[Rfam]
RNA sequence: GUGUUUGCGGGCGUGGCAUCAUCAAGAUUCACAUCGUGACAUCGAUCGAUCUAGACCACUCACUAGGUGGUCUUUGAAGUUUGGAGGAGACGCAUGAGAAUCUUGAUGAUGCUGCAUCCGCAGACAA
Number, nucleotide and partner (000 for none) at each position: 001g000002u000003g000004u000005u000006u000007g000008c000009g000010g118011g117012c000013g115014u114015g113016g112017c111018a110019u109020c108021a107022u106023c105024a104025a103026g102027a101028u100029u099030c098031a000032c096033a095034u000035c000036g000037u000038g000039a000040c000041a000042u000043c000044g000045a000046u000047c000048g000049a000050u000051c000052u000053a000054g000055a000056c000057c000058a000059c000060u000061c000062a000063c000064u000065a000066g000067g000068u000069g000070g000071u000072c000073u000074u000075u000076g000077a000078a000079g000080u000081u000082u000083g000084g000085a000086g000087g000088a000089g000090a000091c000092g000093c000094a000095u033096g032097a000098g030099a029100a028101u027102c026103u025104u024105g023106a022107u021108g020109a019110u018111g017112c016113u015114g014115c013116a000117u011118c010119c000120g000121c000122a000123g000124a000125c000126a000127a000